A member of the RNA family "MIR7526 microRNA precursor family" from Lotus japonicus, 110 nucleotides long.
The source organism's lineage runs through Eukaryota, Spermatophyta, rosids, Hologalegina and Lotus.

RNA sequence: GCGCUAACUACCGCUAUCUUAGUAGCGGAAGUUACCGCUACUAAAAUAGUUGUAACGUCUGCUAUCAAGGUAGCUGUAACUUCCGCUAUUAAGAUAGCGGAAGUUACUGU
Numbered sequence: 001g002c003g004c005u006a007a008c009u010a011c012c013g014c015u016a017u018c019u020u021a022g023u024a025g026c027g028g029a030a031g032u033u034a035c036c037g038c039u040a041c042u043a044a045a046a047u048a049g050u051u052g053u054a055a056c057g058u059c060u061g062c063u064a065u066c067a068a069g070g071u072a073g074c075u076g077u078a079a080c081u082u083c084c085g086c087u088a089u090u091a092a093g094a095u096a097g098c099g100g101a102a103g104u105u106a107c108u109g110u
Stems, first nucleotide, its partner, number of pairs: 001110003005106004011100025037074006049062002